[Rfam]
RNA sequence: GUGGGCUAUGGUGAUAUUUACCCACAGACUUUGCUUGGAAAGAUUGUGGGUGGGCUGUGCUGCAUUGCAGGAGUUCUGGUAAUUGCCCUUCCCAUACCUAUUAUCGUUAACAAU
Number, nucleotide and partner (000 for none) at each position: 001g114002u113003g000004g111005g000006c000007u000008a107009u106010g105011g104012u000013g102014a101015u100016a099017u000018u000019u096020a095021c000022c000023c000024a000025c000026a000027g000028a000029c000030u000031u000032u000033g000034c000035u000036u000037g077038g076039a075040a074041a000042g000043a000044u000045u000046g000047u000048g000049g063050g000051u000052g000053g000054g000055c000056u000057g000058u000059g000060c000061u000062g000063c049064a000065u000066u000067g000068c000069a000070g000071g000072a000073g000074u040075u039076c038077u037078g000079g000080u000081a000082a000083u000084u000085g000086c000087c000088c000089u000090u000091c000092c000093c000094a000095u020096a019097c000098c000099u016100a015101u014102u013103a000104u011105c010106g009107u008108u000109a000110a000111c004112a000113a002114u001